This 70-nucleotide sequence belongs to the Rfam family "MDR-NUDIX RNA".
[Rfam]
RNA sequence: ACUACGAAUCCUUGUCCGGAUUCCUCUAUUCACGCACGUCGGGUCGGGACGAGCCCUUGACCGCUAGCGA
Numbered sequence: 001a002c003u004a005c006g007a008a009u010c011c012u013u014g015u016c017c018g019g020a021u022u023c024c025u026c027u028a029u030u031c032a033c034g035c036a037c038g039u040c041g042g043g044u045c046g047g048g049a050c051g052a053g054c055c056c057u058u059g060a061c062c063g064c065u066a067g068c069g070a
Stems, first nucleotide, its partner, number of pairs: 006023005030070002033067001038061005
The base pairs follow the family's consensus structure, which is taken from published work.